[Rfam]
RNA sequence: CCGUGCUAGCCGGGGAGUUAGCGGCUCCUUGUAACCUGCAAUCCGCUAUAGCAGGGGUGAUGUCUUGUCGAGGGCUUGUUUUUUGCAAUGCUGCCCCCGGUAAGUGGCGUUGACGCUUUGGUCUUGCGCAAUGAAAACUCAUGAACCGUGUCAGGAGGGGAACCUAGCAGCACUAAGUGAGAAUUUUCGUGUGCCGUAAGGUAGCCGGAGCCGAGCUAACUGCCGGGGUAACGGUUACAUUGACAUUUUCAAAACAGGAUGCACGG
Numbered sequence: 001c002c003g004u005g006c007u008a009g010c011c012g013g014g015g016a017g018u019u020a021g022c023g024g025c026u027c028c029u030u031g032u033a034a035c036c037u038g039c040a041a042u043c044c045g046c047u048a049u050a051g052c053a054g055g056g057g058u059g060a061u062g063u064c065u066u067g068u069c070g071a072g073g074g075c076u077u078g079u080u081u082u083u084u085g086c087a088a089u090g091c092u093g094c095c096c097c098c099g100g101u102a103a104g105u106g107g108c109g110u111u112g113a114c115g116c117u118u119u120g121g122u123c124u125u126g127c128g129c130a131a132u133g134a135a136a137a138c139u140c141a142u143g144a145a146c147c148g149u150g151u152c153a154g155g156a157g158g159g160g161a162a163c164c165u166a167g168c169a170g171c172a173c174u175a176a177g178u179g180a181g182a183a184u185u186u187u188c189g190u191g192u193g194c195c196g197u198a199a200g201g202u203a204g205c206c207g208g209a210g211c212c213g214a215g216c217u218a219a220c221u222g223c224c225g226g227g228g229u230a231a232c233g234g235u236u237a238c239a240u241u242g243a244c245a246u247u248u249u250c251a252a253a254a255c256a257g258g259a260u261g262c263a264c265g266g
Stems, first nucleotide, its partner, number of pairs: 001266006009058003012030008035055005063259006072250003080243002084239002087236002092230002096227006104220002106217003115211008123200006129191002132189005138181005148173004156165003